The record is a 70-nucleotide sequence from Sitophilus oryzae, which matches "mir-252 microRNA precursor family" in Rfam.
It scores 75 bits against the family's covariance model.
[Rfam]
RNA sequence: UCCUGUUACUAAGUACUAGUGCCGCAGGAGUCUAUUCUAUCUCCUGCUGCUCAAGUGCUUAUCAAUGGGA
Numbered sequence: 001u002c003c004u005g006u007u008a009c010u011a012a013g014u015a016c017u018a019g020u021g022c023c024g025c026a027g028g029a030g031u032c033u034a035u036u037c038u039a040u041c042u043c044c045u046g047c048u049g050c051u052c053a054a055g056u057g058c059u060u061a062u063c064a065a066u067g068g069g070a
Stems, first nucleotide, its partner, number of pairs: 001070007010061008019052001024047007
The source organism's lineage runs through Eukaryota, Pancrustacea, Hexapoda, Aparaglossata and Sitophilus. Clan: mir-252 microRNA precursor family. The base pairs follow the family's consensus structure, which was predicted with RNAalifold. Gene Ontology terms of the family: miRNA-mediated post-transcriptional gene silencing and RISC complex.